Rfam assigns this 68-nucleotide sequence from Azoarcus indigens to the family "Betaproteobacteria toxic small RNA". From the family's description: Overexpression in amino aid rich medium attenuates growth, suggesting role in repressing amino acid intake and metabolism.

RNA sequence: CGUCUCCUCCACCCUCCUCCUUUGGUGUGGAUUUAGCCCGGGUCCGCAAGGCACCCGGGCUUUUUUCU
Numbered sequence: 001c002g003u004c005u006c007c008u009c010c011a012c013c014c015u016c017c018u019c020c021u022u023u024g025g026u027g028u029g030g031a032u033u034u035a036g037c038c039c040g041g042g043u044c045c046g047c048a049a050g051g052c053a054c055c056c057g058g059g060c061u062u063u064u065u066u067c068u
Base pairs, nucleotide, nucleotide: 008031009030010029011028012027013025014024035061036060037059038058039057040056041055042054

Pairs were carried over by alignment from the consensus structure, which was predicted with WAR.